Epstein-Barr virus stable intronic sequence RNA 1: an 81-nucleotide RNA sequence from Lymphocryptovirus macacinegamma4. The family has 8 seed sequences and 36 matches in Rfam 15.1. It is one of the family's seed sequences.
[Rfam]
RNA sequence: GUAAGUGGACUUUCAUUUAUUCCGCUCAGCCCACCACUCCACCACACCCAGGCACACACUACACACAGCCACCCAUCUCAG
Numbered sequence: 001g002u003a004a005g006u007g008g009a010c011u012u013u014c015a016u017u018u019a020u021u022c023c024g025c026u027c028a029g030c031c032c033a034c035c036a037c038u039c040c041a042c043c044a045c046a047c048c049c050a051g052g053c054a055c056a057c058a059c060u061a062c063a064c065a066c067a068g069c070c071a072c073c074c075a076u077c078u079c080a081g
Base pairs, nucleotide, nucleotide: 004026005025006024007023008022009021029053030052031051